[Rfam]
RNA sequence: GUGCAUUCGUACCCUUAUCAUUCUCUCGCCCCGUGUGGAUAACUAUACAACUGGACGGAGAACUGAUAAGGGCUCGUAUCACC
Numbered sequence: 001g002u003g004c005a006u007u008c009g010u011a012c013c014c015u016u017a018u019c020a021u022u023c024u025c026u027c028g029c030c031c032c033g034u035g036u037g038g039a040u041a042a043c044u045a046u047a048c049a050a051c052u053g054g055a056c057g058g059a060g061a062a063c064u065g066a067u068a069a070g071g072g073c074u075c076g077u078a079u080c081a082c083c
Stems, first nucleotide, its partner, number of pairs: 012072009021062003026058002030054002